The record is a 105-nucleotide sequence from Planomicrobium sp. CPCC 101110, which matches "SAM riboswitch aptamer (S box leader)" in Rfam.
It scores 102 bits against the family's covariance model.
From the family's description: The SAM riboswitch is found upstream of a number of genes which code for proteins involved in methionine or cysteine biosynthesis in Gram-positive bacteria.
The organism belongs to Planomicrobium, within Bacteria.

[Rfam]
RNA sequence: UCCUUAUCAAGAGAGGCAGAGGGAAUGGCCCGAUGACGCCCGGCAACCGCUAUAUUGUAGUAUGGUGCCAAAUCCAGCAGGACGGCUUGUCCUGAAAGAUGAGGA
Numbered sequence: 001u002c003c004u005u006a007u008c009a010a011g012a013g014a015g016g017c018a019g020a021g022g023g024a025a026u027g028g029c030c031c032g033a034u035g036a037c038g039c040c041c042g043g044c045a046a047c048c049g050c051u052a053u054a055u056u057g058u059a060g061u062a063u064g065g066u067g068c069c070a071a072a073u074c075c076a077g078c079a080g081g082a083c084g085g086c087u088u089g090u091c092c093u094g095a096a097a098g099a100u101g102a103g104g105a
Stems, first nucleotide, its partner, number of pairs: 001105008013041001015040003021031003026076003042069004047065002049061004073097001078094006